[Rfam]
Small nucleolar RNA SNORA72: a 132-nucleotide RNA sequence from Pipistrellus kuhlii. Rfam's curators write: U72 is a member of the H/ACA class of snoRNAs. The snoRNA gene is located in intron 4 of the ribosomal L30 protein gene in human, mouse and chicken. The source organism's lineage runs through Eukaryota, Eutheria, Laurasiatheria, Vespertilionidae and Pipistrellus.
RNA sequence: CUGUGAAUAAAGUCACAGUUCUGAUUUUGUAAUAAUCAGGACAGGCUAAACAUUUGCUGUAUUAAUACCAAGCAUGUGGUCCCAGACCUAGUUCUUUUUCUGGGUCUGGUUUUAUGAAUGCUGGUAAUAAAC
Numbered sequence: 001c002u003g004u005g006a007a008u009a010a011a012g013u014c015a016c017a018g019u020u021c022u023g024a025u026u027u028u029g030u031a032a033u034a035a036u037c038a039g040g041a042c043a044g045g046c047u048a049a050a051c052a053u054u055u056g057c058u059g060u061a062u063u064a065a066u067a068c069c070a071a072g073c074a075u076g077u078g079g080u081c082c083c084a085g086a087c088c089u090a091g092u093u094c095u096u097u098u099u100c101u102g103g104g105u106c107u108g109g110u111u112u113u114a115u116g117a118a119u120g121c122u123g124g125u126a127a128u129a130a131a132c
Base pairs, nucleotide, nucleotide: 003057004056005055016044018042019041020040021039022038023037024036025035026034067125068124069123070122072121073120082109083108084107085106086105087104088103089102090101091100
Dot-bracket structure: ..(((..........(.(((((((((.......))))))))).)..........))).........((((.((........((((((((((........))))))))))..........)))))).......